Rfam assigns this 67-nucleotide sequence from Ursus americanus to the family "Small nucleolar RNA U2-30". The match comes from Rfam's covariance-model search (71 bits). The organism belongs to Ursus, within Eukaryota. Rfam classes the family as a C/D-box small nucleolar RNA. Rfam links the family to the GO terms nucleolus and RNA processing.
RNA sequence: GAGCAACAAUGAAAAGGUUUUACUACUGAUCUUUAUAACUAUGAAGGUUUCUACAAUUGAUCUGAGA
Numbered sequence: 001g002a003g004c005a006a007c008a009a010u011g012a013a014a015a016g017g018u019u020u021u022a023c024u025a026c027u028g029a030u031c032u033u034u035a036u037a038a039c040u041a042u043g044a045a046g047g048u049u050u051c052u053a054c055a056a057u058u059g060a061u062c063u064g065a066g067a
Stems, first nucleotide, its partner, number of pairs: 004066001013034007